[Rfam]
RNA sequence: GAAUUAAAUGUCGAAUUACGUCGUAUAAUAUUGGGGAUAUGGCCCAAGAGUUUCUACCAAGCCACCGUAAAGGGCUUGACUACGAGGUAAGUGUUAAGUGGA
Numbered sequence: 001g002a003a004u005u006a007a008a009u010g011u012c013g014a015a016u017u018a019c020g021u022c023g024u025a026u027a028a029u030a031u032u033g034g035g036g037a038u039a040u041g042g043c044c045c046a047a048g049a050g051u052u053u054c055u056a057c058c059a060a061g062c063c064a065c066c067g068u069a070a071a072g073g074g075c076u077u078g079a080c081u082a083c084g085a086g087g088u089a090a091g092u093g094u095u096a097a098g099u100g101g102a
Stems, first nucleotide, its partner, number of pairs: 018088002021085005029049001031047005058078006
RNA: Purine riboswitch aptamer